SAM (S-adenosyl methionine) riboswitch aptamer: a 112-nucleotide sequence from Janibacter melonis. The base pairs follow the family's consensus structure, which is taken from published work. The source organism's lineage runs through Bacteria, Bacillati, Actinomycetota, Micrococcales and Janibacter.

RNA sequence: GGUCAUGAGACCCAGCGUCAAGCGCCGGCUUGCUGGGCGGCAACCCUCCUCGCGAUGGGGUGCCCCGGGUGAUGACCUGGCCGCACCGACCCGGUGCGUGCAAGAGCGAGGC
Dot-bracket structure: ((((....(.((((((....((......)).)))))))(((..(((..(....)...))).))).........))))..(((((((((...))))))).))...........